Notes
The family of this 183-nucleotide RNA sequence from Natranaerobius trueperi is "Group II catalytic intron D1-D4-3". Group II introns are found in rRNA, tRNA and mRNA of organelles in fungi, plants and protists, and also in mRNA in bacteria. Taxonomically the source falls in Natranaerobius (Bacteria, Bacillati, Clostridia, Natranaerobiaceae). A search with the family's covariance model found it, with a score of 60 bits. Pairs were carried over by alignment from the consensus structure.
RNA sequence: GUGGAGGUGACUCUAUCAUCUGAAGGAAGUAAGCGGCAAAUUUUCGCCCCGAGGGACACGAAUCUCAUACAAGGCUAGGCAACACUGGAUUAGUCUGCACAUCAAGACAAAGUCCUUACUACCUGGGGAGAAUCUGCUGGAACGCCACAGAUAAGAGGUAAGCAUGGUCGAGAGGCUAUGUUG
Numbered sequence: 001g002u003g004g005a006g007g008u009g010a011c012u013c014u015a016u017c018a019u020c021u022g023a024a025g026g027a028a029g030u031a032a033g034c035g036g037c038a039a040a041u042u043u044u045c046g047c048c049c050c051g052a053g054g055g056a057c058a059c060g061a062a063u064c065u066c067a068u069a070c071a072a073g074g075c076u077a078g079g080c081a082a083c084a085c086u087g088g089a090u091u092a093g094u095c096u097g098c099a100c101a102u103c104a105a106g107a108c109a110a111a112g113u114c115c116u117u118a119c120u121a122c123c124u125g126g127g128g129a130g131a132a133u134c135u136g137c138u139g140g141a142a143c144g145c146c147a148c149a150g151a152u153a154a155g156a157g158g159u160a161a162g163c164a165u166g167g168u169c170g171a172g173a174g175g176c177u178a179u180g181u182u183g
Stems, first nucleotide, its partner, number of pairs: 001016006030183003036176002041170001044167003048162001051159001063158004068153001075150002079146001083144001087115004093108004
Dot-bracket structure: ((((((....)))))).............(((...((...(..(((.(..(...........((((.(......((..(...(...((((..((((........))))...))))............................).)..))..).)))))..)..)))..)....))....)))